[Rfam]
The family of this 102-nucleotide RNA sequence from Anaeromicrobium sediminis is "Purine riboswitch aptamer". The organism belongs to Anaeromicrobium, within Bacteria. Its family is annotated with purine nucleobase biosynthetic process in the Gene Ontology. The match comes from Rfam's covariance-model search (83 bits). About the family: Riboswitches are metabolite binding domains within certain messenger RNAs that serve as precision sensors for their corresponding targets. Allosteric rearrangement of mRNA structure is mediated by ligand binding, and this results in modulation of gene expression. A class of riboswitches that selectively recognises guanine and becomes saturated at concentrations as low as 5 nM. In Bacillus subtilis, this mRNA motif is located on at least five separate transcriptional units that together encode 17 genes that are mostly involved in purine transport and purine nucleotide biosynthesis.
RNA sequence: UGAAAAAAUUAAAUAAAGUCUCAUAUAAGCCUGGUAAUAAGGUCUGGGCGUUUCUACCAAAUCACCAUAAAUGAUUUGCCUAUGAGUGGAAUAAACUUAGAA
Numbered sequence: 001u002g003a004a005a006a007a008a009u010u011a012a013a014u015a016a017a018g019u020c021u022c023a024u025a026u027a028a029g030c031c032u033g034g035u036a037a038u039a040a041g042g043u044c045u046g047g048g049c050g051u052u053u054c055u056a057c058c059a060a061a062u063c064a065c066c067a068u069a070a071a072u073g074a075u076u077u078g079c080c081u082a083u084g085a086g087u088g089g090a091a092u093a094a095a096c097u098u099a100g101a102a
Stems, first nucleotide, its partner, number of pairs: 020086006029049006058078007